[Rfam]
RNA sequence: GCUCCCUGUUGGAGCUCUGGCUGUGACUUGUGUGUUAUUUGAAAAAGAGUCACAUCACAGGCUGAGUUCUAGUUAGGUAA
Numbered sequence: 001g002c003u004c005c006c007u008g009u010u011g012g013a014g015c016u017c018u019g020g021c022u023g024u025g026a027c028u029u030g031u032g033u034g035u036u037a038u039u040u041g042a043a044a045a046a047g048a049g050u051c052a053c054a055u056c057a058c059a060g061g062c063u064g065a066g067u068u069c070u071a072g073u074u075a076g077g078u079a080a
Base pairs, nucleotide, nucleotide: 004077005076009072010071011070012069013068014067015066016065017064021060022059023058024057025056026055030053031052032051
A member of the RNA family "mir-11 microRNA precursor family" from Neodiprion lecontei, 80 nucleotides long. It scores 65 bits against the family's covariance model. The family is grouped with related families in Rfam's "mir-6 clan". The base pairs follow the family's consensus structure, which was predicted with RNAalifold.